About this RNA
This 92-nucleotide RNA sequence from Streptomyces sp. CC53 belongs to the Rfam family "sodF sRNA". It is annotated as a small RNA. The base pairs follow the family's consensus structure. Gene Ontology terms of the family: negative regulation of translation, mRNA binding and regulation of mRNA stability.

RNA sequence: ACGUCCUGCUCGUGAUCGUCUUCUCACCCUUCACGUGGCAGGCGGAGAGAAAGGGGCAGCCCCCGCGAGGACAGGACUCGCGGGGGCUGCCC
Numbered sequence: 001a002c003g004u005c006c007u008g009c010u011c012g013u014g015a016u017c018g019u020c021u022u023c024u025c026a027c028c029c030u031u032c033a034c035g036u037g038g039c040a041g042g043c044g045g046a047g048a049g050a051a052a053g054g055g056g057c058a059g060c061c062c063c064c065g066c067g068a069g070g071a072c073a074g075g076a077c078u079c080g081c082g083g084g085g086g087c088u089g090c091c092c
Stems, first nucleotide, its partner, number of pairs: 002044002005042006012034004018028001054092016